Rfam assigns this 49-nucleotide sequence from Shimia gijangensis to the family "SAM/SAH riboswitch aptamer". The literature on the family includes a 2019 paper in Nucleic Acids Res by Weickhmann et al., "The structure of the SAM/SAH-binding riboswitch". Lineage of the source: Bacteria > Pseudomonadati > Alphaproteobacteria > Roseobacteraceae > Shimia. Its family is annotated with regulation of gene expression and S-adenosylmethionine metabolic process in the Gene Ontology. The match comes from Rfam's covariance-model search (52 bits).
[Rfam]
RNA sequence: CUGUUGUCACAACGGCUUCCUGAAGUGACAUCGCAUAUCUAUUGGAGCA
Numbered sequence: 001c002u003g004u005u006g007u008c009a010c011a012a013c014g015g016c017u018u019c020c021u022g023a024a025g026u027g028a029c030a031u032c033g034c035a036u037a038u039c040u041a042u043u044g045g046a047g048c049a
Base pairs, nucleotide, nucleotide: 005030006029007028008027009026010025013022014021015048016047017046019045020044